[Rfam]
The family of this 148-nucleotide RNA sequence from Flavobacterium akiainvivens is "Group II catalytic intron D1-D4-7".
RNA sequence: CCUGCUGUUUCGUCAGCAGUAACCUACCGACACAUGCAUUACCAGUAAUGGUUUUGUGUGAAGCUGUCGGGACAAUGAAGCCCUUUCGGAUGAAGGAGCAUGAGCCGUGAGGUUCAGCGACAAUCCCUAGUAUCAUGGGAUUGGGGCG
Numbered sequence: 001c002c003u004g005c006u007g008u009u010u011c012g013u014c015a016g017c018a019g020u021a022a023c024c025u026a027c028c029g030a031c032a033c034a035u036g037c038a039u040u041a042c043c044a045g046u047a048a049u050g051g052u053u054u055u056g057u058g059u060g061a062a063g064c065u066g067u068c069g070g071g072a073c074a075a076u077g078a079a080g081c082c083c084u085u086u087c088g089g090a091u092g093a094a095g096g097a098g099c100a101u102g103a104g105c106c107g108u109g110a111g112g113u114u115c116a117g118c119g120a121c122a123a124u125c126c127c128u129a130g131u132a133u134c135a136u137g138g139g140a141u142u143g144g145g146g147c148g
Stems, first nucleotide, its partner, number of pairs: 002019006028069005033060006041052004083096005098118002101116001105112002123141005

NCBI's taxonomy places the organism under Bacteria, Pseudomonadati, Flavobacteriia, Flavobacteriales, Flavobacterium. The base pairs follow the family's consensus structure. Rfam's curators write: Group II introns are found in rRNA, tRNA and mRNA of organelles in fungi, plants and protists, and also in mRNA in bacteria.